RNA sequence: GUUGAAGGGGGAAUCGGUUUUCAUUUUGAUCUGAGACUCAUUUGGCUCUGAGAUCAUUGUGAAAGCUACUUGCCCAGACUGU
Numbered sequence: 001g002u003u004g005a006a007g008g009g010g011g012a013a014u015c016g017g018u019u020u021u022c023a024u025u026u027u028g029a030u031c032u033g034a035g036a037c038u039c040a041u042u043u044g045g046c047u048c049u050g051a052g053a054u055c056a057u058u059g060u061g062a063a064a065g066c067u068a069c070u071u072g073c074c075c076a077g078a079c080u081g082u
Base pairs, nucleotide, nucleotide: 009074010073012071016067017066018065019064020063021062022061023060024059027056028055029054030053031052032051034049035048036047037045038044
RNA: mir-81 microRNA precursor family